[Rfam]
RNA: c-di-AMP riboswitch aptamer (ydaO/yuaA leader)
RNA sequence: ACAUGUAAGACGCUGAGUUUCUGAUAUCAGAAAGCGGGGGAACCAACGGAUUUCAAUCAUGAGAGAGUUCAUGAUUCGAAGUCCCGGGGUGAAUCCGGACCUUGCUAGGUCCGGUAGGGCGACUCUCACGCCCGAAUCCGACAGCUAACCUCGUAAGCGUACUCGAGAGAGGCA
Numbered sequence: 001a002c003a004u005g006u007a008a009g010a011c012g013c014u015g016a017g018u019u020u021c022u023g024a025u026a027u028c029a030g031a032a033a034g035c036g037g038g039g040g041a042a043c044c045a046a047c048g049g050a051u052u053u054c055a056a057u058c059a060u061g062a063g064a065g066a067g068u069u070c071a072u073g074a075u076u077c078g079a080a081g082u083c084c085c086g087g088g089g090u091g092a093a094u095c096c097g098g099a100c101c102u103u104g105c106u107a108g109g110u111c112c113g114g115u116a117g118g119g120c121g122a123c124u125c126u127c128a129c130g131c132c133c134g135a136a137u138c139c140g141a142c143a144g145c146u147a148a149c150c151u152c153g154u155a156a157g158c159g160u161a162c163u164c165g166a167g168a169g170a171g172g173c174a
Stems, first nucleotide, its partner, number of pairs: 011159004018033006034154006044086001087139003095114006117133004